RNA sequence: CGAUCGGGAGGCCCGUGGUGGGACACGGGCCAUGAAUGGAUCGGAACACGCCGUCUCAAAUGGCCGCGCGGCUGGGGCCCGACAGCGCGCGCG
Numbered sequence: 001c002g003a004u005c006g007g008g009a010g011g012c013c014c015g016u017g018g019u020g021g022g023a024c025a026c027g028g029g030c031c032a033u034g035a036a037u038g039g040a041u042c043g044g045a046a047c048a049c050g051c052c053g054u055c056u057c058a059a060a061u062g063g064c065c066g067c068g069c070g071g072c073u074g075g076g077g078c079c080c081g082a083c084a085g086c087g088c089g090c091g092c093g
Base pairs, nucleotide, nucleotide: 001043002042003041004040005039010031011030012029013028014027015026016025017024065093066092067091068090069089071086072085073084074083
Source information: Rhodo-rpoB RNA: a 93-nucleotide sequence from Roseovarius spongiae. The organism belongs to Roseovarius, within Bacteria. Rfam classes the family as a cis-regulatory element. The match comes from Rfam's covariance-model search (89 bits).